Record summary
Shown here is a 68-nucleotide RNA sequence from Terrilactibacillus tamarindi, a member of the family "Bacillaceae-1 RNA". It is annotated as a small RNA.
[Rfam]
RNA sequence: ACAAGAGGAUCUUCAACUAAAAUUGCUCACGUCCUGUGGCUGGCGUUGAAGCUACCACAUCCUGUGGA
Number, nucleotide and partner (000 for none) at each position: 001a000002c000003a000004a000005g000006a000007g000008g000009a000010u000011c051012u050013u049014c048015a047016a046017c045018u000019a000020a000021a000022a000023u000024u000025g000026c000027u039028c038029a037030c036031g000032u000033c000034c000035u000036g030037u029038g028039g027040c000041u000042g000043g000044c000045g017046u016047u015048g014049a013050a012051g011052c000053u000054a000055c067056c066057a065058c064059a000060u000061c000062c000063u000064g058065u057066g056067g055068a000